[Rfam]
RNA sequence: CAACUCUGGUUCCUCUGCAUUUGACCGUGAAAAUCUUUCGCCUUUUACUAAAGAUUUCCGUGCAAAGGAGCAAACUUUGAGUAUUAUUACCAAUUUUUGGAGUCCCCUCGAAAGAGCGGGAC
Numbered sequence: 001c002a003a004c005u006c007u008g009g010u011u012c013c014u015c016u017g018c019a020u021u022u023g024a025c026c027g028u029g030a031a032a033a034u035c036u037u038u039c040g041c042c043u044u045u046u047a048c049u050a051a052a053g054a055u056u057u058c059c060g061u062g063c064a065a066a067g068g069a070g071c072a073a074a075c076u077u078u079g080a081g082u083a084u085u086a087u088u089a090c091c092a093a094u095u096u097u098u099g100g101a102g103u104c105c106c107c108u109c110g111a112a113a114g115a116g117c118g119g120g121a122c
Stems, first nucleotide, its partner, number of pairs: 003082004009071006016064004031057008103121004108116001
Dot-bracket structure: ..((((..((((((.((((...........((((((((...........))))))))...)))).)))))).......))))....................((((.(.......).)))).
This 122-nucleotide RNA sequence from Caenorhabditis briggsae belongs to the Rfam family "U5 spliceosomal RNA". Rfam describes the family as follows. U5 RNA is a component of both types of known spliceosome. The precise function of this molecule is unknown, though it is known that the 5' loop is required for splice site selection and p220 binding, and that both the 3' stem-loop and the Sm site are important for Sm protein binding and cap methylation. The source organism's lineage runs through Eukaryota, Ecdysozoa, Nematoda, Rhabditina and Caenorhabditis. The base pairs follow the family's consensus structure, which is taken from published work. The match comes from Rfam's covariance-model search (83 bits). It is annotated as a spliceosomal small nuclear RNA.